Description
Rfam assigns this 88-nucleotide RNA from Paenibacillus antri to the family "c-di-GMP-I riboswitch aptamer". A search with the family's covariance model found it, with a score of 74 bits. The base pairs follow the family's consensus structure, which is taken from published work. GEMM was predicted in a large-scale screen for bacterial structured RNA regulatory elements. NCBI's taxonomy places the organism under Bacteria, Bacillati, Bacillota, Caryophanales, Paenibacillus.
[Rfam]
RNA sequence: UCGAAACAAAGGCAAAUCCUUACGAAAGUAGGAGGCGCAAAGCCACGGGUCUACAGCGGUUCGCCGCCAUGACAGCCGGGUUGCUCCA
Numbered sequence: 001u002c003g004a005a006a007c008a009a010a011g012g013c014a015a016a017u018c019c020u021u022a023c024g025a026a027a028g029u030a031g032g033a034g035g036c037g038c039a040a041a042g043c044c045a046c047g048g049g050u051c052u053a054c055a056g057c058g059g060u061u062c063g064c065c066g067c068c069a070u071g072a073c074a075g076c077c078g079g080g081u082u083g084c085u086c087c088a
Stems, first nucleotide, its partner, number of pairs: 012038002017033004022029002041082004046078003049073003056067004